[Rfam]
RNA sequence: UUACUUAAUUUCAUAGCCGUAAGGCUAAUGGCUGGUGGUUUAUUAACCACCGGCCU
Numbered sequence: 001u002u003a004c005u006u007a008a009u010u011u012c013a014u015a016g017c018c019g020u021a022a023g024g025c026u027a028a029u030g031g032c033u034g035g036u037g038g039u040u041u042a043u044u045a046a047c048c049a050c051c052g053g054c055c056u
Base pairs, nucleotide, nucleotide: 014027015026016025017024018023030055031054032053033052034051035050036049037048038047039046
A member of the RNA family "Pseudomonas sRNA P26" from Vibrio renipiscarius, 56 nucleotides long. It is annotated as a non-coding RNA gene. The match comes from Rfam's covariance-model search (60 bits). From the family's description: This small RNA (sRNA) was computationally identified in the genome of the opportunistic pathogen Pseudomonas aeruginosa and its expression verified by northern blot analysis. On this family, see Livny et al., Nucleic Acids Res 2006: "Identification of 17 Pseudomonas aeruginosa sRNAs and prediction of sRNA-encoding genes in 10 diverse pathogens using the bioinformatic tool sRNAPredict2".